[Rfam]
Description: Plastid-ycf2 5UTR RNA: a 73-nucleotide RNA sequence from Gossypium armourianum. The organism belongs to Gossypium, within Eukaryota. Plastid ycf2 is a non-coding RNA (ncRNA) recognised in plastids. For this family Rfam cites "Retrograde signaling in plants: A critical review focusing on the GUN pathway and beyond" (Richter et al., Plant Commun, 2023). Pairs were carried over by alignment from the consensus structure, which was predicted with LocARNA. It is annotated as a cis-regulatory element. It scores 71 bits against the family's covariance model.
RNA sequence: AGGCCCAAUAGGAAUUGAACCUACGAAUUCGCCAAUUAUGAGUUGAGCGCUUUAACCAUUCCGCCAUGGAUGC
Number, nucleotide and partner (000 for none) at each position: 001a000002g000003g073004c072005c069006c068007a000008a000009u023010a022011g021012g020013a000014a000015u000016u000017g000018a000019a000020c012021c011022u010023a009024c000025g000026a000027a000028u000029u000030c000031g000032c000033c000034a000035a000036u000037u000038a067039u066040g065041a000042g064043u063044u000045g061046a060047g059048c000049g057050c000051u000052u000053u000054a000055a000056c000057c049058a000059u047060u046061c045062c000063g043064c042065c040066a039067u038068g006069g005070a000071u000072g004073c003